[Rfam]
RNA sequence: GCCCGGCCUGCCCAGUGUUCAGACUACCUGUUCAGGAUGCUUCCCGGUUGUACAGUAGUCUGCACAUUGGUUAGAUCGGACC
Numbered sequence: 001g002c003c004c005g006g007c008c009u010g011c012c013c014a015g016u017g018u019u020c021a022g023a024c025u026a027c028c029u030g031u032u033c034a035g036g037a038u039g040c041u042u043c044c045c046g047g048u049u050g051u052a053c054a055g056u057a058g059u060c061u062g063c064a065c066a067u068u069g070g071u072u073a074g075a076u077c078g079g080a081c082c
Stems, first nucleotide, its partner, number of pairs: 012070007020062007028055004033050002

The family of this 82-nucleotide RNA sequence from Amazona aestiva is "mir-199 microRNA precursor family". The source organism's lineage runs through Eukaryota, Sauria, Archelosauria, Psittacidae and Amazona. Rfam 15.1 lists 1,828 matches to the family in 648 species. This family consists of the microRNA (miRNA) precursor mir-199 which appears to be specific to humans. Animal miRNAs are transcribed as ~70nt precursors and subsequently processed by the Dicer enzyme to give a ~22nt product. In this case the mature sequence comes from the 3' arm of the precursor. The extents of the hairpin precursors are not generally known and are estimated based on hairpin prediction. The products are thought to have regulatory roles through complementarity to mRNA. The involvement of Dicer in miRNA processing suggests a relationship with the phenomenon of RNA interference. miRNAs are numbered based on the sequence of the mature RNA. Rfam links the family to the GO terms RISC complex and miRNA-mediated post-transcriptional gene silencing. For this family Rfam cites "miRNPs: a novel class of ribonucleoproteins containing numerous microRNAs" (Mourelatos et al., Genes Dev, 2002).